[Rfam]
The family of this 164-nucleotide RNA from Picosynechococcus sp. PCC 7002 is "c-di-AMP riboswitch aptamer (ydaO/yuaA leader)". Gene Ontology terms of the family: regulation of gene expression and cyclic-di-AMP binding. A search with the family's covariance model found it, with a score of 64 bits.
RNA sequence: UGAGUAAGUCAGCUUAGUUCAAGGUUACAAAGCCUUGAAGCGGGGGAACCACCCGUCAACCCAACCGGGAAGACACCGGGGCUUAUUUUCUGAGAUAUGCAGAAAAGGGACAUCUUCCAGUCCUAGCCCGUCAGCUAACCUCGUCAGCAUCGGAAGAAGACUGA
Number, nucleotide and partner (000 for none) at each position: 001u000002g000003a000004g000005u000006a000007a000008g000009u000010c000011a000012g148013c147014u146015u000016a000017g000018u039019u038020c037021a036022a035023g034024g033025u032026u031027a000028c000029a000030a000031a026032g025033c024034c023035u022036u021037g020038a019039a018040g144041c143042g142043g141044g140045g139046g000047a000048a000049c000050c078051a000052c000053c000054c000055g000056u000057c000058a000059a000060c000061c000062c000063a000064a000065c000066c000067g000068g000069g000070a000071a000072g000073a000074c000075a000076c000077c000078g050079g129080g128081g127082c000083u000084u000085a000086u000087u105088u104089u103090c102091u000092g000093a000094g000095a000096u000097a000098u000099g000100c000101a000102g090103a089104a088105a087106a000107g000108g123109g122110a121111c120112a000113u000114c000115u000116u000117c000118c000119a000120g111121u110122c109123c108124u000125a000126g000127c081128c080129c079130g000131u000132c000133a000134g000135c000136u000137a000138a000139c045140c044141u043142c042143g041144u040145c000146a014147g013148c012149a000150u000151c000152g000153g000154a000155a000156g000157a000158a000159g000160a000161c000162u000163g000164a000

Taxonomically the source falls in Picosynechococcus (Bacteria, Cyanobacteriota, Cyanophyceae, Geminocystaceae).